Shown here is a 140-nucleotide RNA from Arabidopsis lyrata, a member of the family "U4 spliceosomal RNA". A search with the family's covariance model found it, with a score of 102 bits. Rfam describes the family as follows. U4 small nuclear RNA (U4 snRNA) is a component of the major U2-dependent spliceosome. By type it is a spliceosomal small nuclear RNA. NCBI's taxonomy places the organism under Eukaryota, Embryophyta, Tracheophyta, Gunneridae, Arabidopsis lyrata.

[Rfam]
RNA sequence: AUCCUUGCGCUUGGGGCAAUGACGCAGCUAAUGAGGUCUUAACCGAGGUGCGUCUAUUGCUUGUUGAAAACUACUUCCAAACCCCCUCCUAGGCCUAAGCUUGUCUUGGGCCUUCGAGAAUUUCUGGAAGAGUUCCCUUA
Numbered sequence: 001a002u003c004c005u006u007g008c009g010c011u012u013g014g015g016g017c018a019a020u021g022a023c024g025c026a027g028c029u030a031a032u033g034a035g036g037u038c039u040u041a042a043c044c045g046a047g048g049u050g051c052g053u054c055u056a057u058u059g060c061u062u063g064u065u066g067a068a069a070a071c072u073a074c075u076u077c078c079a080a081a082c083c084c085c086c087u088c089c090u091a092g093g094c095c096u097a098a099g100c101u102u103g104u105c106u107u108g109g110g111c112c113u114u115c116g117a118g119a120a121u122u123u124c125u126g127g128a129a130g131a132g133u134u135c136c137c138u139u140a
Stems, first nucleotide, its partner, number of pairs: 021054005027049003035044003086118003091113009133140001